[Rfam]
A member of the RNA family "Bacillaceae-1 RNA" from Bacillus sp. NRRL B-14911, 67 nucleotides long.
Lineage of the source: Bacteria > Bacillati > Bacillota > Bacillaceae > Bacillus.
Rfam 15.1 lists 5,721 matches to the family in 247 species.
Rfam's curators put it in the seed alignment.
RNA sequence: CCUUAAGGAACGCAGACUAAGAACGCCACGUCCUGUGGCAACAUCUGCAUGACCAGCUUCCUGGGGG
Numbered sequence: 001c002c003u004u005a006a007g008g009a010a011c012g013c014a015g016a017c018u019a020a021g022a023a024c025g026c027c028a029c030g031u032c033c034u035g036u037g038g039c040a041a042c043a044u045c046u047g048c049a050u051g052a053c054c055a056g057c058u059u060c061c062u063g064g065g066g067g
Base pairs, nucleotide, nucleotide: 012048013047014046015045016044025039026038027037028036029035053067054066057063